[Rfam]
RNA sequence: CAUUUAAAAUACUAUAUUACCUGUAUAACUUCUAGAAUAUGGCUAGAGGGUCUCUACCAGGAACCAUAAAAUCCUGAUUACAGAAAAUGAACUAUUCAUU
Numbered sequence: 001c002a003u004u005u006a007a008a009a010u011a012c013u014a015u016a017u018u019a020c021c022u023g024u025a026u027a028a029c030u031u032c033u034a035g036a037a038u039a040u041g042g043c044u045a046g047a048g049g050g051u052c053u054c055u056a057c058c059a060g061g062a063a064c065c066a067u068a069a070a071a072u073c074c075u076g077a078u079u080a081c082a083g084a085a086a087a088u089g090a091a092c093u094a095u096u097c098a099u100u
Stems, first nucleotide, its partner, number of pairs: 018086001021083005029049007058076005
Purine riboswitch aptamer: a 100-nucleotide RNA sequence from Heyndrickxia oleronia. It scores 75 bits against the family's covariance model. Pairs were carried over by alignment from the consensus structure, which is taken from published work. Taxonomically the source falls in Heyndrickxia (Bacteria, Bacillati, Bacillota, Bacilli).